The family of this 102-nucleotide sequence from Paenisporosarcina cavernae is "Purine riboswitch aptamer".
The family is grouped with related families in Rfam's "Purine riboswitches".
Its family is annotated with purine nucleobase biosynthetic process in the Gene Ontology.
Lineage of the source: Bacteria > Bacillota > Caryophanales > Caryophanaceae > Paenisporosarcina.
A reference for the family is Mandal et al. (2003), "Riboswitches Control Fundamental Biochemical Pathways in Bacillus subtilis and Other Bacteria", Cell.
RNA sequence: AAUUAGAUAGAACGAUGCCCUCAUAUAUGUCCGAUAAUACGGUUCGGAUGUCUCUACCAAGUUGCCGGAAAUAACUUGACUAUGAAGGCGGAAAAGUCGCGU
Numbered sequence: 001a002a003u004u005a006g007a008u009a010g011a012a013c014g015a016u017g018c019c020c021u022c023a024u025a026u027a028u029g030u031c032c033g034a035u036a037a038u039a040c041g042g043u044u045c046g047g048a049u050g051u052c053u054c055u056a057c058c059a060a061g062u063u064g065c066c067g068g069a070a071a072u073a074a075c076u077u078g079a080c081u082a083u084g085a086a087g088g089c090g091g092a093a094a095a096g097u098c099g100c101g102u
Stems, first nucleotide, its partner, number of pairs: 018088002021085005029049006058078007